[Rfam]
RNA sequence: GAGUUAGCGAUAUGUGGCGAGGUUAACCCGUGUGGGGUAGCCGUAGCGAAAGCGAGUCUGAAUAGGGCGAUUCAGUCGCAUGUCCUAGACCCGAAGCGAAGUGAUCUAUCCAUGGCCAGGUUGAAGCGACGGUAAGACGUCGUGGAGGACCGAACCCACUUAGGUUGAAAACUGAGGGGAUGAGCUGUGGAUAGGGGUGAAAGGCCAAUCAAACUUCGUGAUAGCUGGUU
Numbered sequence: 001g002a003g004u005u006a007g008c009g010a011u012a013u014g015u016g017g018c019g020a021g022g023u024u025a026a027c028c029c030g031u032g033u034g035g036g037g038u039a040g041c042c043g044u045a046g047c048g049a050a051a052g053c054g055a056g057u058c059u060g061a062a063u064a065g066g067g068c069g070a071u072u073c074a075g076u077c078g079c080a081u082g083u084c085c086u087a088g089a090c091c092c093g094a095a096g097c098g099a100a101g102u103g104a105u106c107u108a109u110c111c112a113u114g115g116c117c118a119g120g121u122u123g124a125a126g127c128g129a130c131g132g133u134a135a136g137a138c139g140u141c142g143u144g145g146a147g148g149a150c151c152g153a154a155c156c157c158a159c160u161u162a163g164g165u166u167g168a169a170a171a172c173u174g175a176g177g178g179g180a181u182g183a184g185c186u187g188u189g190g191a192u193a194g195g196g197g198u199g200a201a202a203g204g205c206c207a208a209u210c211a212a213a214c215u216u217c218g219u220g221a222u223a224g225c226u227g228g229u230u
Stems, first nucleotide, its partner, number of pairs: 005087003009084010021042004027036003046053002056068004090228002093225001097218006106194011117182001119151004126143006155179003159176005196206003

Rfam assigns this 230-nucleotide part of an RNA from Microbacterium lemovicicum to the family "Bacterial large subunit ribosomal RNA". The family's consensus secondary structure is taken from published work. The match comes from Rfam's covariance-model search (2816 bits). The literature on the family includes a 2002 paper in BMC Bioinformatics by Cannone et al., "The comparative RNA web (CRW) site: an online database of comparative sequence and structure information for ribosomal, intron, and other RNAs".